[Rfam]
RNA sequence: UUAUGUUAUGAAGAUUGACAAAAUGUUCAACUGCUCUGAAUAGGCUGAGUGAAAAUAGCCUUUCUGAACAUCC
Number, nucleotide and partner (000 for none) at each position: 001u000002u000003a071004u070005g069006u068007u000008a000009u000010g000011a000012a000013g000014a000015u000016u000017g000018a000019c000020a000021a000022a000023a000024u000025g000026u000027u000028c000029a000030a000031c000032u000033g000034c000035u000036c000037u000038g000039a000040a000041u000042a000043g000044g000045c000046u000047g000048a000049g000050u000051g000052a000053a000054a000055a000056u000057a000058g000059c000060c000061u000062u000063u000064c000065u000066g000067a000068a006069c005070a004071u003072c000073c000

The family of this 73-nucleotide RNA from Tupaia belangeri is "Small nucleolar RNA Z40".
NCBI's taxonomy places the organism under Eukaryota, Amniota, Tupaiidae, Tupaia, Tupaia belangeri.
The match comes from Rfam's covariance-model search (85 bits).
Its family is annotated with RNA processing and nucleolus in the Gene Ontology.
By type it is a C/D-box small nucleolar RNA.
The family's consensus secondary structure was predicted with PFOLD.